[Rfam]
RNA sequence: ACAACGGCUCUUUUAAGAGCCACCCACUAAUCAUAAAAGAGAAUG
Numbered sequence: 001a002c003a004a005c006g007g008c009u010c011u012u013u014u015a016a017g018a019g020c021c022a023c024c025c026a027c028u029a030a031u032c033a034u035a036a037a038a039g040a041g042a043a044u045g
Stems, first nucleotide, its partner, number of pairs: 006021006

About this RNA:
The record is a 45-nucleotide sequence from Neogobius melanostomus, which matches "Histone 3' UTR stem-loop" in Rfam. The base pairs follow the family's consensus structure, which is taken from published work. Gene Ontology term of the family: mRNA 3'-end processing by stem-loop binding and cleavage. Rfam classes the family as a cis-regulatory element. A reference for the family is Dominski and Marzluff (1999), "Formation of the 3' end of histone mRNA", Gene.